[Rfam]
Nucleotides: 337
Stems, first nucleotide, its partner, number of pairs: 001333010011322001012291007020044009049320003053317005058180004065226001067224002070176005075089005090110001091108003111171002116169002118165003134151004139146002184248004194239006218231004255274008
Number, partner (000 for none) and nucleotide at each position: 001333a002332a003331g004330a005329u006328a007327a008326a009325u010324u011322g012291g013290g014289c015288g016287a017286u018285c019000g020044c021043g022042a023041u024040a025039u026038u027037a028036u029000u030000c031000a032000a033000a034000a035000c036028a037027u038026a039025a040024u041023a042022u043021c044020g045000a046000g047000g048000a049320a050319g051318g052000u053317c054316c055315g056314g057313a058180c059179u060178c061177c062000a063000u064000a065226g066000g067224g068223c069000a070176g071175a072174a073173u074172a075089g076088c077087g078086g079085c080000u081000a082000a083000c084000a085079g086078c087077c088076g089075u090110c091108a092107a093106a094000a095000u096000a097000u098000u099000a100000a101000u102000a103000u104000u105000a106093u107092u108091u109000a110090g111171a112170a113000a114000u115000a116169g117168g118165g119164c120163c121000a122000c123000a124000g125000a126000g127000a128000c129000g130000a131000g132000u133000a134151u135150a136149c137148u138000a139146g140145a141000u142000u143000u144000a145140u146139u147000c148137a149136g150135u151134a152000u153000g154000g155000u156000g157000a158000a159000a160000c161000g162000a163120g164119g165118u166000a167000a168117c169116c170112u171111u172074u173073a174072u175071u176070c177061g178060g179059a180058g181000c182000a183000a184248c185247a186246u187245c188000a189000a190000a191000u192000a193000g194239a195238c196237a197236u198235g199234c200000g201000u202000a203000u204000g205000a206000u207000u208000u209000u210000a211000u212000c213000a214000u215000g216000u217000a218231g219230a220229a221228u222000u223068g224067c225000a226065c227000c228221g229220u230219u231218c232000a233000a234199g235198c236197a237196u238195g239194u240000g241000g242000g243000u244000a245187g246186a247185u248184g249000g250000c251000u252000a253000c254000a255274g256273u257272a258271a259270g260269u261268u262267u263000g264000u265000a266000a267262a268261a269260a270259c271258u272257u273256a274255u275000g276000c277000a278000g279000a280000u281000a282000g283000a284000u285018g286017a287016u288015c289014g290013u291012c292000a293000g294000c295000u296000u297000u298000a299000a300000u301000a302000a303000g304000c305000a306000u307000a308000c309000a310000g311000a312000a313057u314056c315055c316054g317053g318051c319050c320049u321000a322011u323000a324010g325009a326008u327007u328006u329005a330004u331003c332002u333001u334000a335000c336000u337000a